[Rfam]
RNA sequence: UGACUUUGUCCUAAGUCAAACUUCUCUGGCUUUUACCAUGUUUCUAGAAAAAUAUAUUGAUAUCUACAAGUUCAAAUAAAUUGUUUAUCAAAACAUAUUGCAUGAAGAAGCUAAUGAAACAAAUCUGGUGUUCUGGAUGUUGGUGGAUUUUUUCUAUAAAUAGUCAACGUUAAAGAAGUUUGACUUAGGACAAAACCAA
Numbered sequence: 001u002g003a004c005u006u007u008g009u010c011c012u013a014a015g016u017c018a019a020a021c022u023u024c025u026c027u028g029g030c031u032u033u034u035a036c037c038a039u040g041u042u043u044c045u046a047g048a049a050a051a052a053u054a055u056a057u058u059g060a061u062a063u064c065u066a067c068a069a070g071u072u073c074a075a076a077u078a079a080a081u082u083g084u085u086u087a088u089c090a091a092a093a094c095a096u097a098u099u100g101c102a103u104g105a106a107g108a109a110g111c112u113a114a115u116g117a118a119a120c121a122a123a124u125c126u127g128g129u130g131u132u133c134u135g136g137a138u139g140u141u142g143g144u145g146g147a148u149u150u151u152u153u154c155u156a157u158a159a160a161u162a163g164u165c166a167a168c169g170u171u172a173a174a175g176a177a178g179u180u181u182g183a184c185u186u187a188g189g190a191c192a193a194a195a196c197c198a199a
Stems, first nucleotide, its partner, number of pairs: 005194005011188015032167002035164002045156008055145003059141008068132001072128003076124002
Dot-bracket structure: ....(((((.(((((((((((((((......((.((........((((((((..(((.((((((((.(...(((.((.............................................)).)))...).)))))))).)))...))))))))......)).))......))))))))))))))).))))).....

MIR1435 microRNA precursor family: a 199-nucleotide RNA from Miscanthus lutarioriparius.